This 99-nucleotide RNA sequence from Streptococcus ferus belongs to the Rfam family "23S methyl RNA motif".
RNA sequence: UAUUCACUACUUUAAAUCAAACCUGUUAUGAUUUAAGGUAAUGAUGCGAUAUACGCCACGUUACCUGCUGAGCCUGACUCCGGGAAGCGUGGUCUUUUU
Numbered sequence: 001u002a003u004u005c006a007c008u009a010c011u012u013u014a015a016a017u018c019a020a021a022c023c024u025g026u027u028a029u030g031a032u033u034u035a036a037g038g039u040a041a042u043g044a045u046g047c048g049a050u051a052u053a054c055g056c057c058a059c060g061u062u063a064c065c066u067g068c069u070g071a072g073c074c075u076g077a078c079u080c081c082g083g084g085a086a087g088c089g090u091g092g093u094c095u096u097u098u099u
Base pairs, nucleotide, nucleotide: 004044005043006042008040009039010038011037012036013035014034015033016032017031018030019029055093056092057091058090059089060088061087062086064084065083066082067081070080071079072078
Background:
By type it is a cis-regulatory element. The literature on the family includes a 2007 paper in Nucleic Acids Res by Weinberg et al., "Identification of 22 candidate structured RNAs in bacteria using the CMfinder comparative genomics pipeline". The match comes from Rfam's covariance-model search (78 bits).